Overview:
A member of the RNA family "Mammalian CPEB3 ribozyme" from Crocodylus porosus, 81 nucleotides long. The match comes from Rfam's covariance-model search (41 bits).
RNA sequence: AGAGGUCACAAAUUCAAGGCCAAAGCAGAAGUGUUCACGGUGCAGCCCUAUCAGGUUCCAAACAAAUCUGUUAAUUCUGCU
Numbered sequence: 001a002g003a004g005g006u007c008a009c010a011a012a013u014u015c016a017a018g019g020c021c022a023a024a025g026c027a028g029a030a031g032u033g034u035u036c037a038c039g040g041u042g043c044a045g046c047c048c049u050a051u052c053a054g055g056u057u058c059c060a061a062a063c064a065a066a067u068c069u070g071u072u073a074a075u076u077c078u079g080c081u
Base pairs, nucleotide, nucleotide: 018047019046020045024081025080026079027078028077029076030075031043032042033041052070053069054068055067056066057065
Lineage of the source: Eukaryota > Bilateria > Archosauria > Crocodylia > Crocodylus.
The family's consensus secondary structure is taken from published work.